[Rfam]
RNA sequence: AGCGAACCACAACGGCUUCCUGACGUGGUUCUUCAUUGGCGAUUGGAGCG
Numbered sequence: 001a002g003c004g005a006a007c008c009a010c011a012a013c014g015g016c017u018u019c020c021u022g023a024c025g026u027g028g029u030u031c032u033u034c035a036u037u038g039g040c041g042a043u044u045g046g047a048g049c050g
Stems, first nucleotide, its partner, number of pairs: 004031007013022002015049003019046002
RNA: SAM/SAH riboswitch aptamer
Organism: Roseobacter denitrificans